[Rfam]
RNA sequence: CAACUUACCUGGAUGGGGUCAAUGGUUGGCCAAGAUGGACCAUGGCCUAGGUUAGUGACCUCCAUUGCACUUAGGAUGGGUUCUAGCCUAAGAUCGGCCCAAGUGGUCGAGCCUACAUCAUAAUUUGUGCCAGUAGGGGCUUGCGUUCACGCGGCCCCUGC
Numbered sequence: 001c002a003a004c005u006u007a008c009c010u011g012g013a014u015g016g017g018g019u020c021a022a023u024g025g026u027u028g029g030c031c032a033a034g035a036u037g038g039a040c041c042a043u044g045g046c047c048u049a050g051g052u053u054a055g056u057g058a059c060c061u062c063c064a065u066u067g068c069a070c071u072u073a074g075g076a077u078g079g080g081u082u083c084u085a086g087c088c089u090a091a092g093a094u095c096g097g098c099c100c101a102a103g104u105g106g107u108c109g110a111g112c113c114u115a116c117a118u119c120a121u122a123a124u125u126u127g128u129g130c131c132a133g134u135a136g137g138g139g140c141u142u143g144c145g146u147u148c149a150c151g152c153g154g155c156c157c158c159u160g161c
Stems, first nucleotide, its partner, number of pairs: 012119004016048006023042005049089003053086001055083001057081001059079002062075002091114002094110003098106002134160005142153004
Rfam assigns this 161-nucleotide RNA from Lactuca sativa to the family "U1 spliceosomal RNA".
Rfam classes the family as a spliceosomal small nuclear RNA.
Clan: U1 clan.
Lineage of the source: Eukaryota > Pentapetalae > Cichorioideae > Cichorieae > Lactuca.
The family's consensus secondary structure is taken from published work.
Gene Ontology terms of the family: pre-mRNA 5'-splice site binding, U1 snRNP and mRNA 5'-splice site recognition.
Rfam's curators write: U1 is a small nuclear RNA (snRNA) component of the spliceosome (involved in pre-mRNA splicing).